[Rfam]
RNA sequence: GACGAGUCGAGAAAACAAACGCGAGAUGCGUAAAAUUUUUGAGAUAGAGGACAUCUACCUUAAAUGGCAAGCACGGGAAGUGCUGAUGUUGGAUAAGCCUGAUGUGAACAGGAACUGUCCUCA
Numbered sequence: 001g002a003c004g005a006g007u008c009g010a011g012a013a014a015a016c017a018a019a020c021g022c023g024a025g026a027u028g029c030g031u032a033a034a035a036u037u038u039u040u041g042a043g044a045u046a047g048a049g050g051a052c053a054u055c056u057a058c059c060u061u062a063a064a065u066g067g068c069a070a071g072c073a074c075g076g077g078a079a080g081u082g083c084u085g086a087u088g089u090u091g092g093a094u095a096a097g098c099c100u101g102a103u104g105u106g107a108a109c110a111g112g113a114a115c116u117g118u119c120c121u122c123a
Stems, first nucleotide, its partner, number of pairs: 006045003009040005019031004050090006058067002070084005091120003098112003